[Rfam]
RNA sequence: CAAGUAUACGGCAUAGCCGUGUAAUAUAGCAAUAUAUUACUUAUUAUUUCACUAUAUGCUAGGAACUCCUAAAGCCUUAGGUACCUAUUUAGGUAACAAUCCUAAGGAUAAAACAAUGGACAAUUAGCAGGAAACCUGUUUCACAAAAAGUCUUUUCAAUACUUUUCUUUAUUAAGGGUUCCUCAGAGACUAUAUGUGAAAUAUCCUCUCCCAUCUAACCUUAAAUUUUAAUUUGGCUCUGAAAAGAGCAGAAAUUAUACAAAAAGAGGAUAAAGAUAUAGUCCGACUUUUGUCGAAAGUCAAAA
Numbered sequence: 001c002a003a004g005u006a007u008a009c010g011g012c013a014u015a016g017c018c019g020u021g022u023a024a025u026a027u028a029g030c031a032a033u034a035u036a037u038u039a040c041u042u043a044u045u046a047u048u049u050c051a052c053u054a055u056a057u058g059c060u061a062g063g064a065a066c067u068c069c070u071a072a073a074g075c076c077u078u079a080g081g082u083a084c085c086u087a088u089u090u091a092g093g094u095a096a097c098a099a100u101c102c103u104a105a106g107g108a109u110a111a112a113a114c115a116a117u118g119g120a121c122a123a124u125u126a127g128c129a130g131g132a133a134a135c136c137u138g139u140u141u142c143a144c145a146a147a148a149a150g151u152c153u154u155u156u157c158a159a160u161a162c163u164u165u166u167c168u169u170u171a172u173u174a175a176g177g178g179u180u181c182c183u184c185a186g187a188g189a190c191u192a193u194a195u196g197u198g199a200a201a202u203a204u205c206c207u208c209u210c211c212c213a214u215c216u217a218a219c220c221u222u223a224a225a226u227u228u229u230a231a232u233u234u235g236g237c238u239c240u241g242a243a244a245a246g247a248g249c250a251g252a253a254a255u256u257a258u259a260c261a262a263a264a265a266g267a268g269g270a271u272a273a274a275g276a277u278a279u280a281g282u283c284c285g286a287c288u289u290u291u292g293u294c295g296a297a298a299g300u301c302a303a304a305a
Stems, first nucleotide, its partner, number of pairs: 001021002004018001007015002046202005052196001057129006067120003130182002135177003145169002186284001188283005204270006290303003294299001
RNA: Group I catalytic intron
Organism: Bifiguratus adelaidae